[Rfam]
RNA sequence: AAUGGUACCCUAUUCCCUAUAUAGUGCACUACUUCUGAUCUGGUCAAAAGCAGUGCACUAUAUAGGGAAUAGGGUGCCAUUU
Numbered sequence: 001a002a003u004g005g006u007a008c009c010c011u012a013u014u015c016c017c018u019a020u021a022u023a024g025u026g027c028a029c030u031a032c033u034u035c036u037g038a039u040c041u042g043g044u045c046a047a048a049a050g051c052a053g054u055g056c057a058c059u060a061u062a063u064a065g066g067g068a069a070u071a072g073g074g075u076g077c078c079a080u081u082u
Stems, first nucleotide, its partner, number of pairs: 001082002005077006012070008022060009
mir-130 microRNA precursor family: an 82-nucleotide RNA from Coregonus sp. 'balchen'.
A search with the family's covariance model found it, with a score of 46 bits.
Rfam links the family to the GO terms miRNA-mediated post-transcriptional gene silencing and RISC complex.
The source organism's lineage runs through Eukaryota, Opisthokonta, Metazoa, Chordata and Coregonus.